[Rfam]
RNA sequence: CGCUCAGAACUUUCCACAAAACGUAUAAAUCUUUCGCCUUUUACUAAAGAUUUCCGUGUGGAGAGUUUACUCAUGAGAACUUUGUAAUUUUUCUAGCCUCUCUACACUGAUAGGCU
Numbered sequence: 001c002g003c004u005c006a007g008a009a010c011u012u013u014c015c016a017c018a019a020a021a022c023g024u025a026u027a028a029a030u031c032u033u034u035c036g037c038c039u040u041u042u043a044c045u046a047a048a049g050a051u052u053u054c055c056g057u058g059u060g061g062a063g064a065g066u067u068u069a070c071u072c073a074u075g076a077g078a079a080c081u082u083u084g085u086a087a088u089u090u091u092u093c094u095a096g097c098c099u100c101u102c103u104a105c106a107c108u109g110a111u112a113g114g115c116u
Stems, first nucleotide, its partner, number of pairs: 003077004008067011027053008095116005101110001
RNA: U5 spliceosomal RNA
Organism: Holothuria leucospilota